[Rfam]
RNA sequence: UUGCAUUAGGGAUUGAAGCGGCAUCCUUUUUUGAGGAACGAAAAAAAGAUACAGCGGAAGACCCGACCCGCA
Numbered sequence: 001u002u003g004c005a006u007u008a009g010g011g012a013u014u015g016a017a018g019c020g021g022c023a024u025c026c027u028u029u030u031u032u033g034a035g036g037a038a039c040g041a042a043a044a045a046a047a048g049a050u051a052c053a054g055c056g057g058a059a060g061a062c063c064c065g066a067c068c069c070g071c072a
Base pairs, nucleotide, nucleotide: 009064010063011062013060014059018055019054023050024049025048029045030044031043032042
The record is a 72-nucleotide RNA sequence from Flavobacterium sp. GT3R68, which matches "Flavo-1 RNA" in Rfam. The base pairs follow the family's consensus structure, which is taken from published work.